[Rfam]
RNA sequence: CGAACGGAGAGUUUGAUCCUGGCUCAGGAUGAACGCUGGCGGCGCGCCUAACACAUGCAAGUCGAACGGUUAAGGCCCCCUUUAGGGGGCGCAUAGAGUGGCGAACGGGUGAGUAACACGUGACCAACCCGCCCCCCCCACCGGGACAACCUCGGGAAACCGAGGCUAAUACCGGAUACGCCGGGGCCCCCGCAUGGGGGCUCCGGGAAAGCCUUGGCGGGAGGGGACGGGGUCGCGGCCCAUCAGGUAGACGGCGGGGCGAAGGCCCGCCGUGCCGACGACGGGUAGCCGGGCUGAGAGGCCGAUCGGCCACAUUGGGACUGAGACACGGCCCAGACUCCUACGGGAGGCAGCAGUGGGGAAUAUUGCGCAAUGGGGGGAACCCUGACGCAGCGACGCCGCGUGCGGGAAGGAGGCCUUCGGGUCGUAAACCGCUUUCAGCAGGGAAGAAGCCUGACGGUACCUGCAGAAGAAGCCCCGGCUAACUACGUGCCAGCAGCCGCGGUAAUACGUAGGGGGCGAGCGUUAUCCGGAUUCAUUG
Numbered sequence: 001c002g003a004a005c006g007g008a009g010a011g012u013u014u015g016a017u018c019c020u021g022g023c024u025c026a027g028g029a030u031g032a033a034c035g036c037u038g039g040c041g042g043c044g045c046g047c048c049u050a051a052c053a054c055a056u057g058c059a060a061g062u063c064g065a066a067c068g069g070u071u072a073a074g075g076c077c078c079c080c081u082u083u084a085g086g087g088g089g090c091g092c093a094u095a096g097a098g099u100g101g102c103g104a105a106c107g108g109g110u111g112a113g114u115a116a117c118a119c120g121u122g123a124c125c126a127a128c129c130c131g132c133c134c135c136c137c138c139c140a141c142c143g144g145g146a147c148a149a150c151c152u153c154g155g156g157a158a159a160c161c162g163a164g165g166c167u168a169a170u171a172c173c174g175g176a177u178a179c180g181c182c183g184g185g186g187c188c189c190c191c192g193c194a195u196g197g198g199g200g201c202u203c204c205g206g207g208a209a210a211g212c213c214u215u216g217g218c219g220g221g222a223g224g225g226g227a228c229g230g231g232g233u234c235g236c237g238g239c240c241c242a243u244c245a246g247g248u249a250g251a252c253g254g255c256g257g258g259g260c261g262a263a264g265g266c267c268c269g270c271c272g273u274g275c276c277g278a279c280g281a282c283g284g285g286u287a288g289c290c291g292g293g294c295u296g297a298g299a300g301g302c303c304g305a306u307c308g309g310c311c312a313c314a315u316u317g318g319g320a321c322u323g324a325g326a327c328a329c330g331g332c333c334c335a336g337a338c339u340c341c342u343a344c345g346g347g348a349g350g351c352a353g354c355a356g357u358g359g360g361g362a363a364u365a366u367u368g369c370g371c372a373a374u375g376g377g378g379g380g381a382a383c384c385c386u387g388a389c390g391c392a393g394c395g396a397c398g399c400c401g402c403g404u405g406c407g408g409g410a411a412g413g414a415g416g417c418c419u420u421c422g423g424g425u426c427g428u429a430a431a432c433c434g435c436u437u438u439c440a441g442c443a444g445g446g447a448a449g450a451a452g453c454c455u456g457a458c459g460g461u462a463c464c465u466g467c468a469g470a471a472g473a474a475g476c477c478c479c480g481g482c483u484a485a486c487u488a489c490g491u492g493c494c495a496g497c498a499g500c501c502g503c504g505g506u507a508a509u510a511c512g513u514a515g516g517g518g519g520c521g522a523g524c525g526u527u528a529u530c531c532g533g534a535u536u537c538a539u540u541g
Stems, first nucleotide, its partner, number of pairs: 009025005027531004032527006039402006045395002047360001052358003056355003061102003066099002075090006109313003119237007128230002133226004138221002141175004150165006181206007189198003211218002239285003246276003251273008288310004292303004315336005338349004366392001368391003374387005405435004415426004439472001441467005449458001475520005486515005496503002
A member of the RNA family "Bacterial small subunit ribosomal RNA" from Slackia exigua, 541 nucleotides of a longer RNA. The base pairs follow the family's consensus structure, which is taken from published work. The organism belongs to Slackia exigua, within Bacteria.